The family of this 92-nucleotide RNA sequence from Aureimonas altamirensis is "Selenocysteine transfer RNA". NCBI's taxonomy places the organism under Bacteria, Pseudomonadati, Alphaproteobacteria, Hyphomicrobiales, Aureimonas. It scores 78 bits against the family's covariance model.
RNA sequence: GGAAGAGAAUCGCCCCUGGUGGGGCGUCCGGACUUCAAAUCCGGGUGGGGCCGUGAGCCGGUCCUUGGUGGGUUCGACUCCCACUCUCCUCC
Numbered sequence: 001g002g003a004a005g006a007g008a009a010u011c012g013c014c015c016c017u018g019g020u021g022g023g024g025c026g027u028c029c030g031g032a033c034u035u036c037a038a039a040u041c042c043g044g045g046u047g048g049g050g051c052c053g054u055g056a057g058c059c060g061g062u063c064c065u066u067g068g069u070g071g072g073u074u075c076g077a078c079u080c081c082c083a084c085u086c087u088c089c090u091c092c
Stems, first nucleotide, its partner, number of pairs: 001092003005088004011026006027045006047065005069083004